Rfam assigns this 72-nucleotide RNA from Diabrotica virgifera to the family "mir-87 microRNA precursor family". The organism belongs to Diabrotica virgifera, within Eukaryota. Its family is annotated with miRNA-mediated post-transcriptional gene silencing and RISC complex in the Gene Ontology.
RNA sequence: AAUUGGUACGCUUGAACUUUGUUUUUCCUGUGUCAUUAAACUAGGUGAGCAAAGAUUCAGGUGUAUCGGUUG
Numbered sequence: 001a002a003u004u005g006g007u008a009c010g011c012u013u014g015a016a017c018u019u020u021g022u023u024u025u026u027c028c029u030g031u032g033u034c035a036u037u038a039a040a041c042u043a044g045g046u047g048a049g050c051a052a053a054g055a056u057u058c059a060g061g062u063g064u065a066u067c068g069g070u071u072g
Base pairs, nucleotide, nucleotide: 002070003069004068005067006066007065009063010062011061012060013059014058015057017054018053019052020051022049023048024047027045028044029043
Notes: The literature on the family includes a 2003 paper in Dev Cell by Aravin et al., "The small RNA profile during Drosophila melanogaster development".